MIR5272 microRNA precursor family: a 73-nucleotide RNA sequence from Medicago truncatula. The source organism's lineage runs through Eukaryota, Streptophytina, rosids, Hologalegina and Medicago. The family has 6 seed sequences and 271 matches in Rfam 15.1.
[Rfam]
RNA sequence: UUGGAUGUGAAUUGAUUAUGUUUGGAUACACUCGGUUUCAAGUGAUUCUUAUGAGUUGAGGUUGUUUGAAUAU
Numbered sequence: 001u002u003g004g005a006u007g008u009g010a011a012u013u014g015a016u017u018a019u020g021u022u023u024g025g026a027u028a029c030a031c032u033c034g035g036u037u038u039c040a041a042g043u044g045a046u047u048c049u050u051a052u053g054a055g056u057u058g059a060g061g062u063u064g065u066u067u068g069a070a071u072a073u
Base pairs, nucleotide, nucleotide: 012059013058014057015056016055017054020052021051024048025047026046027045029044030043031042032041